[Rfam]
RNA sequence: UUUAUUGUCAACCAAAGUAAAUCUCGUGCGGCUUGUUGCAUUACUAGCCGUAAGAGAUUCGCUUAGAUUGAUUAUAAA
Numbered sequence: 001u002u003u004a005u006u007g008u009c010a011a012c013c014a015a016a017g018u019a020a021a022u023c024u025c026g027u028g029c030g031g032c033u034u035g036u037u038g039c040a041u042u043a044c045u046a047g048c049c050g051u052a053a054g055a056g057a058u059u060c061g062c063u064u065a066g067a068u069u070g071a072u073u074a075u076a077a078a
Base pairs, nucleotide, nucleotide: 006074007072008071009070010069011068013066015064016063017062018061020059021058022057023056024055025054027052028051029050030049031048032047033046035044

About this RNA:
Shown here is a 78-nucleotide RNA from Brenthis ino, a member of the family "mir-2767 microRNA precursor family". The family's consensus secondary structure was predicted with RNAalifold. Taxonomically the source falls in Brenthis (Eukaryota, Eumetazoa, Ditrysia, Papilionoidea). It scores 72 bits against the family's covariance model.